[Rfam]
Rfam assigns this 143-nucleotide part of an RNA from Dientamoeba fragilis to the family "Eukaryotic small subunit ribosomal RNA". Rfam's curators put it in the seed alignment. Taxonomically the source falls in Dientamoeba (Eukaryota, Metamonada, Parabasalia, Dientamoebidae).
RNA sequence: CCGCCCGUCGCUCCUACCGAUUGAAUGACUCGGUGAAAUCAUUGGAUCAUUUUUUUUUAAAUGAAAAGGUGAUUAAAUCACGUUAUUUAGAGGAAGGAGAAGUCGUAACAAGGUAACGGUAGGUGAACCUGCCGUUGGAUCAA
Numbered sequence: 001c002c003g004c005c006c007g008u009c010g011c012u013c014c015u016a017c018c019g020a021u022u023g024a025a026u027g028a029c030u031c032g033g034u035g036a037a038a039u040c041a042u043u044g045g046a047u048c049a050u051u052u053u054u055u056u057u058u059a060a061a062u063g064a065a066a067a068g069g070u071g072a073u074u075a076a077a078u079c080a081c082g083u084u085a086u087u088u089a090g091a092g093g094a095a096g097g098a099g100a101a102g103u104c105g106u107a108a109c110a111a112g113g114u115a116a117c118g119g120u121a122g123g124u125g126a127a128c129c130u131g132c133c134g135u136u137g138g139a140u141c142a143a
Stems, first nucleotide, its partner, number of pairs: 001112001003109001006105002009102001011099005017093002021089001023088007032079003037074007047064006114137010